[Rfam]
RNA: mir-196 microRNA precursor family
Organism: Pan troglodytes
RNA sequence: UGAAUUAGGUAGUUUCAUGUUGUUGGGCCUGGGUUUCUGAACACAACAACAUUAAACCACCCGAUUCAC
Numbered sequence: 001u002g003a004a005u006u007a008g009g010u011a012g013u014u015u016c017a018u019g020u021u022g023u024u025g026g027g028c029c030u031g032g033g034u035u036u037c038u039g040a041a042c043a044c045a046a047c048a049a050c051a052u053u054a055a056a057c058c059a060c061c062c063g064a065u066u067c068a069c
Stems, first nucleotide, its partner, number of pairs: 001068006008061003012057004018051008027042001